COG3860 RNA: a 56-nucleotide RNA from Allorhizobium borbori.

RNA sequence: CGGUCGGCAGUUCACCAAGGCGUCGCUGUUCCCGGAAGGGAAAGCUAAACCUGCCA
Numbered sequence: 001c002g003g004u005c006g007g008c009a010g011u012u013c014a015c016c017a018a019g020g021c022g023u024c025g026c027u028g029u030u031c032c033c034g035g036a037a038g039g040g041a042a043a044g045c046u047a048a049a050c051c052u053g054c055c056a
Stems, first nucleotide, its partner, number of pairs: 002016003029042004

Pairs were carried over by alignment from the consensus structure, which is taken from published work. It is annotated as a cis-regulatory element.